This 101-nucleotide RNA sequence from Ekhidna lutea belongs to the Rfam family "SAM riboswitch aptamer (S box leader)". Rfam links the family to the GO term regulation of gene expression. NCBI's taxonomy places the organism under Bacteria, Pseudomonadati, Cytophagales, Reichenbachiellaceae, Ekhidna.
RNA sequence: AAUUUAUAAAGAAGCACGGAGAGACAGGCUCGUUGAUGUGCUAGCAACCUGGUAACCAAACCAAGGUGCUAAUUCCUGAACUUUUAAAGUGAAUAUAAAUU
Numbered sequence: 001a002a003u004u005u006a007u008a009a010a011g012a013a014g015c016a017c018g019g020a021g022a023g024a025c026a027g028g029c030u031c032g033u034u035g036a037u038g039u040g041c042u043a044g045c046a047a048c049c050u051g052g053u054a055a056c057c058a059a060a061c062c063a064a065g066g067u068g069c070u071a072a073u074u075c076c077u078g079a080a081c082u083u084u085u086a087a088a089g090u091g092a093a094u095a096u097a098a099a100u101u
Stems, first nucleotide, its partner, number of pairs: 001101008013042005021031003025078004043070004048066002050063004074093001080090004